[Rfam]
Nucleotides: 082
Stems, first nucleotide, its partner, number of pairs: 018078007025034001027032001038051005052071004057066001
Number, partner (000 for none) and nucleotide at each position: 001000a002000u003000u004000g005000a006000a007000u008000u009000a010000a011000g012000c013000c014000c015000u016000g017000u018078g019077a020076u021075g022074a023073u024072g025034u026000c027032c028000u029000a030000a031000u032027g033000a034025a035000u036000u037000u038051g039050a040049g041048u042047g043000g044000u045000g046000c047042c048041g049040c050039u051038u052071g053070g054069u055068u056000g057066u058000u059000u060000c061000u062000a063000g064000c065000c066057g067000a068055g069054a070053c071052u072024c073023a074022u075021c076020a077019u078018c079000u080000c081000c082000a

Shown here is an 82-nucleotide RNA sequence from Schrenkiella parvula, a member of the family "Small Cajal body specific RNA ncR27". Rfam links the family to the GO terms Cajal body, nucleolus and RNA processing. Pairs were carried over by alignment from the consensus structure, which was predicted with RNAfold. It is one of the family's seed sequences. The literature on the family includes a 2015 paper in BMC Genomics by Qu et al., "Promoter-based identification of novel non-coding RNAs reveals the presence of dicistronic snoRNA-miRNA genes in Arabidopsis thaliana".